[Rfam]
RNA sequence: AACACCGCUGGACAGGGACGGUCUCGAGGGUUGGGGAGCCCAGCGACAGAUCGCACUCCUGAGAUAGCACCGGGUCAUAGGGAGCCCGGGGCGAUCGUUCUGGCGAAGGAG
Numbered sequence: 001a002a003c004a005c006c007g008c009u010g011g012a013c014a015g016g017g018a019c020g021g022u023c024u025c026g027a028g029g030g031u032u033g034g035g036g037a038g039c040c041c042a043g044c045g046a047c048a049g050a051u052c053g054c055a056c057u058c059c060u061g062a063g064a065u066a067g068c069a070c071c072g073g074g075u076c077a078u079a080g081g082g083a084g085c086c087c088g089g090g091g092c093g094a095u096c097g098u099u100c101u102g103g104c105g106a107a108g109g110a111g
Stems, first nucleotide, its partner, number of pairs: 006105007013061004019053006028041005063096003067092002071088005
RNA: Actinomyces-1 RNA